[Rfam]
RNA: Eukaryotic large subunit ribosomal RNA, nucleotides 1545 to 1982
Organism: Cryptosporidium parvum
RNA sequence: GGUAGUAGCAAUUAUUCAAAUGAGAACUUUGAAGACUGACGUGGAGCAGGGUUCCAUGAGAACAGUAUUUGGACAUGGGUUAGUCGGUCCUAAGUGAGAGGUUAACACCAAUAAAAUAAAUUAUUUUUUAUAUUUAUACUCACAAAAGGGAAUCAGGUUGAUAUUCCUGAACCAGAAUAUGGAUAUUUAUAUGGUAACAUAAAAGAACUCUAAAACACAAGUAUAAAUCCCGAAUAGCGUUAUCUUUGCUAUUUAACAAUCUAUUACCAUGGAAUUAGUUCAGCUAGAGAAAUGGUUAUAUGAUUGGAAUAGAAUUCUCUUUGUGGAAUUUUCGGUGCAUUUAUAAUUGUCCUUGAAAAUUAGAGGGAUAGAUUUAUUUUCAUAUCUGGCCGUACCGAUAACCGCAUCAGGUCUCCAAGGUUAACAGCCUCUGGUCAA
Numbered sequence: 001g002g003u004a005g006u007a008g009c010a011a012u013u014a015u016u017c018a019a020a021u022g023a024g025a026a027c028u029u030u031g032a033a034g035a036c037u038g039a040c041g042u043g044g045a046g047c048a049g050g051g052u053u054c055c056a057u058g059a060g061a062a063c064a065g066u067a068u069u070u071g072g073a074c075a076u077g078g079g080u081u082a083g084u085c086g087g088u089c090c091u092a093a094g095u096g097a098g099a100g101g102u103u104a105a106c107a108c109c110a111a112u113a114a115a116a117u118a119a120a121u122u123a124u125u126u127u128u129u130a131u132a133u134u135u136a137u138a139c140u141c142a143c144a145a146a147a148g149g150g151a152a153u154c155a156g157g158u159u160g161a162u163a164u165u166c167c168u169g170a171a172c173c174a175g176a177a178u179a180u181g182g183a184u185a186u187u188u189a190u191a192u193g194g195u196a197a198c199a200u201a202a203a204a205g206a207a208c209u210c211u212a213a214a215a216c217a218c219a220a221g222u223a224u225a226a227a228u229c230c231c232g233a234a235u236a237g238c239g240u241u242a243u244c245u246u247u248g249c250u251a252u253u254u255a256a257c258a259a260u261c262u263a264u265u266a267c268c269a270u271g272g273a274a275u276u277a278g279u280u281c282a283g284c285u286a287g288a289g290a291a292a293u294g295g296u297u298a299u300a301u302g303a304u305u306g307g308a309a310u311a312g313a314a315u316u317c318u319c320u321u322u323g324u325g326g327a328a329u330u331u332u333c334g335g336u337g338c339a340u341u342u343a344u345a346a347u348u349g350u351c352c353u354u355g356a357a358a359a360u361u362a363g364a365g366g367g368a369u370a371g372a373u374u375u376a377u378u379u380u381c382a383u384a385u386c387u388g389g390c391c392g393u394a395c396c397g398a399u400a401a402c403c404g405c406a407u408c409a410g411g412u413c414u415c416c417a418a419g420g421u422u423a424a425c426a427g428c429c430u431c432u433g434g435u436c437a438a
Stems, first nucleotide, its partner, number of pairs: 015033006034436004043416004049396002054078005063071002085392003089149002094143002096112001100109003119134003153170005173388004178384005183378001190201004208365006217350004222345007230335003233253006257306005266296005275287004313330006402411002418430004